Notes: Rfam assigns this 50-nucleotide RNA sequence to the family "eL15-Euryarchaeota ribosomal protein leader". It is one of the family's seed sequences. The base pairs follow the family's consensus structure, which is taken from published work. A reference for the family is Eckert and Weinberg (2020), "Discovery of 20 novel ribosomal leader candidates in bacteria and archaea", BMC Microbiol.

[Rfam]
RNA sequence: CCCGCUUCGGCGGGACGACAUGUGGCCGGUUCGACCGGCUGAAUCGCAAG
Number, nucleotide and partner (000 for none) at each position: 001c014002c013003c012004g011005c010006u000007u000008c000009g000010g005011c004012g003013g002014g001015a000016c046017g045018a044019c000020a000021u000022g000023u000024g040025g039026c038027c037028g036029g000030u000031u000032c000033g000034a000035c000036c028037g027038g026039c025040u024041g000042a000043a000044u018045c017046g016047c000048a000049a000050g000